[Rfam]
RNA sequence: AAUAUAAUAAUAUUCCGAGCUACCAUCUCUAAGGGUAUUAACCUAAGGGAAGUAGCCUAUGGGUAUAAAGAGAAAUCCUUAUGCCUCCCGUAAUUGGAAAGGAAAAAGAUACUGAUGCUA
Numbered sequence: 001a002a003u004a005u006a007a008u009a010a011u012a013u014u015c016c017g018a019g020c021u022a023c024c025a026u027c028u029c030u031a032a033g034g035g036u037a038u039u040a041a042c043c044u045a046a047g048g049g050a051a052g053u054a055g056c057c058u059a060u061g062g063g064u065a066u067a068a069a070g071a072g073a074a075a076u077c078c079u080u081a082u083g084c085c086u087c088c089c090g091u092a093a094u095u096g097g098a099a100a101g102g103a104a105a106a107a108g109a110u111a112c113u114g115a116u117g118c119u120a
Base pairs, nucleotide, nucleotide: 003114004113011106013104014103015102016101019056020055021054022053023052026050027049028048029047033044034043035042036041061086062085063084064083065082066081067080068079070077071076087097088096
RNA: Molybdenum/Tungsten riboswitch aptamer (Moco RNA motif)
Organism: Natronincola peptidivorans